RNA sequence: AUGCACGAAGCAACCCCGGGCUUCUCUGAAAUCCCAAUGACGAGAAAAGCCCCAAUGCACGUGCCAAAUCAGCGACGUUCGUGUUGCAGUUUAGUCCUAAAUUCCAUGUCUAGAUCUGUGUCAAAGCAACGGCAAAAUGC
Numbered sequence: 001a002u003g004c005a006c007g008a009a010g011c012a013a014c015c016c017c018g019g020g021c022u023u024c025u026c027u028g029a030a031a032u033c034c035c036a037a038u039g040a041c042g043a044g045a046a047a048a049g050c051c052c053c054a055a056u057g058c059a060c061g062u063g064c065c066a067a068a069u070c071a072g073c074g075a076c077g078u079u080c081g082u083g084u085u086g087c088a089g090u091u092u093a094g095u096c097c098u099a100a101a102u103u104c105c106a107u108g109u110c111u112a113g114a115u116c117u118g119u120g121u122c123a124a125a126g127c128a129a130c131g132g133c134a135a136a137a138u139g140c
Base pairs, nucleotide, nucleotide: 003064004063005062006061007060010058011057018052019051020050021049022048023046025043026042074133076131077130078129079128082123083122085120086119087118088117089116093111094110
The record is a 140-nucleotide RNA sequence from Lupinus angustifolius, which matches "small nucleolar RNA snoR134" in Rfam. The organism belongs to Lupinus, within Eukaryota. Gene Ontology terms of the family: RNA processing and nucleolus. The match comes from Rfam's covariance-model search (79 bits). On this family, see Chen and Wu, Nucleic Acids Res 2009: "Mining small RNA sequencing data: a new approach to identify small nucleolar RNAs in Arabidopsis". The family's consensus secondary structure was predicted with RNAalifold.